[Rfam]
RNA sequence: CAACGCGAUGCGGGAGAGCCGGAGGGGCGAGAAGCCGCCACCGGCACCGAAGGAGCAAGCCUCCCCGCCAAUCUCUCAGGUACGUGUACCGCAUCGACCAG
Numbered sequence: 001c002a003a004c005g006c007g008a009u010g011c012g013g014g015a016g017a018g019c020c021g022g023a024g025g026g027g028c029g030a031g032a033a034g035c036c037g038c039c040a041c042c043g044g045c046a047c048c049g050a051a052g053g054a055g056c057a058a059g060c061c062u063c064c065c066c067g068c069c070a071a072u073c074u075c076u077c078a079g080g081u082a083c084g085u086g087u088a089c090c091g092c093a094u095c096g097a098c099c100a101g
Stems, first nucleotide, its partner, number of pairs: 006096008019044004046081003049077002053075003059068002

A member of the RNA family "Glycine riboswitch aptamer" from Microcella daejeonensis, 101 nucleotides long. The organism belongs to Microcella, within Bacteria. A search with the family's covariance model found it, with a score of 64 bits.